Rfam assigns this 84-nucleotide RNA sequence from Flavobacterium noncentrifugens to the family "Flavo-1 RNA". By type it is a small RNA. Rfam 15.1 lists 7,497 matches to the family in 411 species. Lineage of the source: Bacteria > Pseudomonadati > Flavobacteriia > Flavobacteriales > Flavobacterium. The match comes from Rfam's covariance-model search (50 bits).
[Rfam]
RNA sequence: CUGCAUCAGGGAUGGCAGCGGCAUCCUUUAUAUGGUGCAGCACAGCGGAACCGUAUAAAGAUAAAGCGGACAGCCCGUGCCGCA
Numbered sequence: 001c002u003g004c005a006u007c008a009g010g011g012a013u014g015g016c017a018g019c020g021g022c023a024u025c026c027u028u029u030a031u032a033u034g035g036u037g038c039a040g041c042a043c044a045g046c047g048g049a050a051c052c053g054u055a056u057a058a059a060g061a062u063a064a065a066g067c068g069g070a071c072a073g074c075c076c077g078u079g080c081c082g083c084a
Stems, first nucleotide, its partner, number of pairs: 009076003013072002018067002023062003029057008